[Rfam]
RNA sequence: AAAUUAUUGGCUUUUUUAGUCAGGAAUAACUGUGCCUACAAAAAGGUAA
Numbered sequence: 001a002a003a004u005u006a007u008u009g010g011c012u013u014u015u016u017u018a019g020u021c022a023g024g025a026a027u028a029a030c031u032g033u034g035c036c037u038a039c040a041a042a043a044a045g046g047u048a049a
Stems, first nucleotide, its partner, number of pairs: 009021004
Background:
Rfam assigns this 49-nucleotide sequence from Thinocorus orbignyianus to the family "algC RNA". The family's RNA type in Rfam is cis-regulatory element. A search with the family's covariance model found it, with a score of 34 bits. The base pairs follow the family's consensus structure, which is taken from published work.